[Rfam]
RNA sequence: GGAGGCAGGGGAAGCACGGCCACGCAGCCAACACACAGGGAGCUCGCUCCCCAGCACGCUGCGGGGAAAGUCCCCGUGCCUUUGGGCAGAGAGUGUCAUUGGGAGACCAAAGGCUAGCGCCUGAAGCUUGCAGUGAAGCUUCGUGCGGAGCUGUUAGCAUAGGAGCUGGCCACUUGCAGCAGCACAGUUAUGCCGUGAGCACUCGACAUGGGUGCCAACUGAACGGGGCUCAACUGCAGCCAU
Numbered sequence: 001g002g003a004g005g006c007a008g009g010g011g012a013a014g015c016a017c018g019g020c021c022a023c024g025c026a027g028c029c030a031a032c033a034c035a036c037a038g039g040g041a042g043c044u045c046g047c048u049c050c051c052c053a054g055c056a057c058g059c060u061g062c063g064g065g066g067a068a069a070g071u072c073c074c075c076g077u078g079c080c081u082u083u084g085g086g087c088a089g090a091g092a093g094u095g096u097c098a099u100u101g102g103g104a105g106a107c108c109a110a111a112g113g114c115u116a117g118c119g120c121c122u123g124a125a126g127c128u129u130g131c132a133g134u135g136a137a138g139c140u141u142c143g144u145g146c147g148g149a150g151c152u153g154u155u156a157g158c159a160u161a162g163g164a165g166c167u168g169g170c171c172a173c174u175u176g177c178a179g180c181a182g183c184a185c186a187g188u189u190a191u192g193c194c195g196u197g198a199g200c201a202c203u204c205g206a207c208a209u210g211g212g213u214g215c216c217a218a219c220u221g222a223a224c225g226g227g228g229c230u231c232a233a234c235u236g237c238a239g240c241c242a243u
Stems, first nucleotide, its partner, number of pairs: 003243001008241002011237001015197006023063006038051005069230002072228004085097004099110004112170001114168001117166002120163003126158002128153001130151002138146002199215006

Rfam assigns this 243-nucleotide RNA from Symbiodinium sp. CCMP2456 to the family "RNase MRP". RNase MRP is an enzymatically active ribonucleoprotein with two distinct roles in eukaryotes. In mitochondria it plays a direct role in the initiation of mitochondrial DNA replication. In the nucleus it is involved in precursor rRNA processing, where it cleaves the internal transcribed spacer 1 between 18S and 5.8S rRNAs. Pairs were carried over by alignment from the consensus structure, which is taken from published work. Lineage of the source: Eukaryota > Sar > Dinophyceae > Suessiales > Symbiodinium. The match comes from Rfam's covariance-model search (95 bits).